[Rfam]
RNA sequence: CGGGAGUGCAUUGUAGUUGCAUUGCACCUGUUCGUAAUAAACGUGCAAUAUUACUACAAGGCAAAUCUCG
Number, nucleotide and partner (000 for none) at each position: 001c070002g069003g068004g067005a000006g066007u063008g062009c061010a000011u059012u058013g057014u056015a055016g054017u000018u000019g051020c000021a049022u048023u047024g046025c045026a044027c043028c000029u000030g000031u000032u000033c000034g000035u000036a000037a000038u000039a000040a000041a000042c000043g027044u026045g025046c024047a023048a022049u021050a000051u019052u000053a000054c016055u015056a014057c013058a012059a011060g000061g009062c008063a007064a000065a000066u006067c004068u003069c002070g001
Rfam assigns this 70-nucleotide RNA sequence from Manduca sexta to the family "mir-33 microRNA precursor family".
The literature on the family includes a 2009 paper in BMC Genomics by Li et al., "Direct sequencing and expression analysis of a large number of miRNAs in Aedes aegypti and a multi-species survey of novel mosquito miRNAs".
Pairs were carried over by alignment from the consensus structure, which was predicted with PFOLD.
It is one of the family's seed sequences.